This 71-nucleotide RNA sequence from Ursus maritimus belongs to the Rfam family "mir-374 microRNA precursor family". A reference for the family is Lui et al. (2007), "Patterns of known and novel small RNAs in human cervical cancer", Cancer Res. Gene Ontology terms of the family: RISC complex and miRNA-mediated post-transcriptional gene silencing.

[Rfam]
RNA sequence: ACUCGGAUGGAUAUAAUACAACCUGCUAAGUGUCCUAGCACUUAUCAGGUUGUAUUAUCAAUCGAUGUCUA
Numbered sequence: 001a002c003u004c005g006g007a008u009g010g011a012u013a014u015a016a017u018a019c020a021a022c023c024u025g026c027u028a029a030g031u032g033u034c035c036u037a038g039c040a041c042u043u044a045u046c047a048g049g050u051u052g053u054a055u056u057a058u059c060a061a062u063c064g065a066u067g068u069c070u071a
Stems, first nucleotide, its partner, number of pairs: 013058009023048003027044007